[Rfam]
RNA sequence: ACCUGUUGCGGAGGGCAGCGCGAGUUGCCCGCAACACCAGACACAACACCGUGCCACGGGAACAUCGGGGCACUUCAGGGCGUU
Numbered sequence: 001a002c003c004u005g006u007u008g009c010g011g012a013g014g015g016c017a018g019c020g021c022g023a024g025u026u027g028c029c030c031g032c033a034a035c036a037c038c039a040g041a042c043a044c045a046a047c048a049c050c051g052u053g054c055c056a057c058g059g060g061a062a063c064a065u066c067g068g069g070g071c072a073c074u075u076c077a078g079g080g081c082g083u084u
Stems, first nucleotide, its partner, number of pairs: 004036008013026002015021002051073005057067002